[Rfam]
RNA sequence: GAUCGCAACGAUGACUUGGUGAAGUCCAAGCUCAACAGAACUGGAAUGCAGGAUUUUCUCUUGCUCUUCUUGCGAGAAAAUUUUUCAGGUUGACCACCUCGCUCACUUGAGCGAUC
Numbered sequence: 001g002a003u004c005g006c007a008a009c010g011a012u013g014a015c016u017u018g019g020u021g022a023a024g025u026c027c028a029a030g031c032u033c034a035a036c037a038g039a040a041c042u043g044g045a046a047u048g049c050a051g052g053a054u055u056u057u058c059u060c061u062u063g064c065u066c067u068u069c070u071u072g073c074g075a076g077a078a079a080a081u082u083u084u085u086c087a088g089g090u091u092g093a094c095c096a097c098c099u100c101g102c103u104c105a106c107u108u109g110a111g112c113g114a115u116c
Stems, first nucleotide, its partner, number of pairs: 001116006
A member of the RNA family "Small nucleolar RNA Z107/R87" from Carpinus fangiana, 116 nucleotides long. The family has 9 seed sequences and 783 matches in Rfam 15.1. The base pairs follow the family's consensus structure, which was predicted with RNAfold. NCBI's taxonomy places the organism under Eukaryota, Spermatophyta, eudicotyledons, fabids, Carpinus. On this family, see Barneche et al., J Mol Biol 2001: "Identification of 66 box C/D snoRNAs in Arabidopsis thaliana: extensive gene duplications generated multiple isoforms predicting new ribosomal RNA 2'-O-methylation sites". Rfam links the family to the GO terms nucleolus and RNA processing. It is annotated as a C/D-box small nucleolar RNA.